[Rfam]
RNA sequence: GCUGGUGAAAAUGAUGACUUGACUUUUUUCCCCAUCAGAUCGACCAUGUUGAGAUCUCUGAACACUUGCCAGUUACUUCUGAUACACCGGC
Numbered sequence: 001g002c003u004g005g006u007g008a009a010a011a012u013g014a015u016g017a018c019u020u021g022a023c024u025u026u027u028u029u030c031c032c033c034a035u036c037a038g039a040u041c042g043a044c045c046a047u048g049u050u051g052a053g054a055u056c057u058c059u060g061a062a063c064a065c066u067u068g069c070c071a072g073u074u075a076c077u078u079c080u081g082a083u084a085c086a087c088c089g090g091c
Base pairs, nucleotide, nucleotide: 001091002090003089004088005087006086007085009083
RNA: Small nucleolar SNORD12/SNORD106
Organism: Molossus molossus